[Rfam]
RNA: c-di-GMP-I riboswitch aptamer
RNA sequence: UGCUGAAAAGAGCAAACUGCCGGCGACGGCAGGACGCAAAGCUUCCGGGCUCAUCGAGCUAGCGGGGCUGCCAGU
Numbered sequence: 001u002g003c004u005g006a007a008a009a010g011a012g013c014a015a016a017c018u019g020c021c022g023g024c025g026a027c028g029g030c031a032g033g034a035c036g037c038a039a040a041g042c043u044u045c046c047g048g049g050c051u052c053a054u055c056g057a058g059c060u061a062g063c064g065g066g067g068c069u070g071c072c073a074g075u
Base pairs, nucleotide, nucleotide: 012037013036017032018031019030020029021028022027040069041068042067043066045065046064047063048060049059050058
Dot-bracket structure: ...........((...((((((....))))))...))..((((.((((((.......)))..)))))))......